[Rfam]
RNA sequence: GCUGGGUGAUGACCUAUGAAUUGACAGCCAGUGUUUUGGUUGGACUGCCUGUCAGUUCUGUAGGCCACUGCCCCGC
Numbered sequence: 001g002c003u004g005g006g007u008g009a010u011g012a013c014c015u016a017u018g019a020a021u022u023g024a025c026a027g028c029c030a031g032u033g034u035u036u037u038g039g040u041u042g043g044a045c046u047g048c049c050u051g052u053c054a055g056u057u058c059u060g061u062a063g064g065c066c067a068c069u070g071c072c073c074c075g076c
Base pairs, nucleotide, nucleotide: 001076002075004073005072006071007070008069010067011066013064014063015062016061018058019057020056021055022054023053024052025051026050027049029047030046031045
Dot-bracket structure: ((.(((((.((.((((.((((((((((.(((.............))).))))))))))..)))).)).))))).))

Shown here is a 76-nucleotide RNA sequence from Bagarius yarrelli, a member of the family "mir-192/215 microRNA precursor family". The match comes from Rfam's covariance-model search (78 bits). Rfam links the family to the GO terms miRNA-mediated post-transcriptional gene silencing and RISC complex. Rfam's curators write: This family represents the human microRNA (miRNA) precursors mir-192 and mir-215. Animal miRNAs are transcribed as ~70nt precursors and subsequently processed by the Dicer enzyme to give a ~22nt product. In this case the mature sequence comes from the 5' arm of the precursor. The extents of the hairpin precursors are not generally known and are estimated based on hairpin prediction. The family has 48 seed sequences and 810 matches in Rfam 15.1.